[Rfam]
RNA sequence: AAUACGAUAGUAUGGUAGAAAGAUUCAGAUAUUUCUUUCUACCAUACUAUUUAGUAUUGUAAAUUAUGGAACUACUUCAAAAU
Number, nucleotide and partner (000 for none) at each position: 001a000002a000003u000004a000005c000006g051007a050008u049009a048010g047011u046012a045013u044014g043015g042016u041017a040018g039019a038020a037021a036022g035023a034024u000025u000026c000027a000028g000029a000030u000031a000032u000033u000034u023035c022036u021037u020038u019039c018040u017041a016042c015043c014044a013045u012046a011047c010048u009049a008050u007051u006052u000053a000054g000055u000056a000057u000058u000059g000060u000061a000062a000063a000064u000065u000066a000067u000068g000069g000070a000071a000072c000073u000074a000075c000076u000077u000078c000079a000080a000081a000082a000083u000
RNA: Plastid-psbM 3UTR RNA